[Rfam]
RNA: Selenocysteine insertion sequence 1
Organism: Aegithalos caudatus
RNA sequence: CUCUCCGCAGAAUGACAGCCCCCUCCAAAACCUCCACGGGGAGGGGGCUUGAUGGGGGCAGAGAG
Numbered sequence: 001c002u003c004u005c006c007g008c009a010g011a012a013u014g015a016c017a018g019c020c021c022c023c024u025c026c027a028a029a030a031c032c033u034c035c036a037c038g039g040g041g042a043g044g045g046g047g048c049u050u051g052a053u054g055g056g057g058g059c060a061g062a063g064a065g
Stems, first nucleotide, its partner, number of pairs: 001065005017049010031039002